[Rfam]
RNA sequence: AUCGUAGCCAAUGAGGUUUAUCUGAGGCGCCAUUAUUGCUAAUAGAAAACUUUUCCCAAUGCCCCACCAUGACAACUUAAAAUAUAGUCGGCAUUGGCAAUUUUUGACAAUCUCUACGGAGA
Dot-bracket structure: ((.((.(((.....((.....))..))))).)).................................(((((.(.(((........))).).))).)).............((((....))))
RNA: U4 spliceosomal RNA